Shown here is a 119-nucleotide RNA from Fictibacillus enclensis, a member of the family "SAM riboswitch aptamer (S box leader)". It scores 70 bits against the family's covariance model. Lineage of the source: Bacteria > Bacillati > Bacillota > Fictibacillaceae > Fictibacillus. Its family is annotated with regulation of gene expression in the Gene Ontology.
RNA sequence: CUCUUAUUCCGAGUAGGUGGAGGGACAGGCCCUAUGAAACCCAGCAACCGACACUUCGUGCCAAAAAAUGAAGUGAAAAGGUGCUAACCUGCAAGGUGAACAAGCCUUGAAAAUAAGAG
Numbered sequence: 001c002u003c004u005u006a007u008u009c010c011g012a013g014u015a016g017g018u019g020g021a022g023g024g025a026c027a028g029g030c031c032c033u034a035u036g037a038a039a040c041c042c043a044g045c046a047a048c049c050g051a052c053a054c055u056u057c058g059u060g061c062c063a064a065a066a067a068a069u070g071a072a073g074u075g076a077a078a079a080g081g082u083g084c085u086a087a088c089c090u091g092c093a094a095g096g097u098g099a100a101c102a103a104g105c106c107u108u109g110a111a112a113a114u115a116a117g118a119g
Stems, first nucleotide, its partner, number of pairs: 001119008013042001016041003022032003026091004043085004048081002052075008092109006